[Rfam]
Notes
This 78-nucleotide RNA sequence from Onychostoma macrolepis belongs to the Rfam family "Small nucleolar RNA SNORD2". Rfam links the family to the GO terms RNA processing and nucleolus. The family's RNA type in Rfam is C/D-box small nucleolar RNA. Pairs were carried over by alignment from the consensus structure, which was predicted with WAR.

RNA sequence: GUAUGAAAUGAUGGUCUACCAUCUUUCGGGACUGACUUCUCAUGGAGAGAUUUGUUUCUAAACACAAACUGAUCAUAC
Dot-bracket structure: ((((((..................................................................))))))